This 130-nucleotide RNA from Vicugna pacos belongs to the Rfam family "Small nucleolar RNA SNORA30/SNORA37 family". Taxonomically the source falls in Vicugna (Eukaryota, Bilateria, Teleostomi, Theria). About the family: The members of this family belong to the H/ACA class of snoRNAs that guide the sites of modification of uridines to pseudouridines. The family has 11 seed sequences and 407 matches in Rfam 15.1. A search with the family's covariance model found it, with a score of 104 bits.

RNA sequence: CUGGCACUUUCACAAGCCUCCCCCAGGCAGUGGGGCCAGGAUUUGGUAGCUGGCGCUGAAAUUGAAAACCCUUAAUUACAUCCUUGCCCUGGGACUGUGCCAGUGGCAAUUGUCACUCAGUGGGACUCAG
Numbered sequence: 001c002u003g004g005c006a007c008u009u010u011c012a013c014a015a016g017c018c019u020c021c022c023c024c025a026g027g028c029a030g031u032g033g034g035g036c037c038a039g040g041a042u043u044u045g046g047u048a049g050c051u052g053g054c055g056c057u058g059a060a061a062u063u064g065a066a067a068a069c070c071c072u073u074a075a076u077u078a079c080a081u082c083c084u085u086g087c088c089c090u091g092g093g094a095c096u097g098u099g100c101c102a103g104u105g106g107c108a109a110u111u112g113u114c115a116c117u118c119a120g121u122g123g124g125a126c127u128c129a130g
Stems, first nucleotide, its partner, number of pairs: 003057003007053002013045003017040003021035004069124003072120002075117001077115001080113002084109005089103004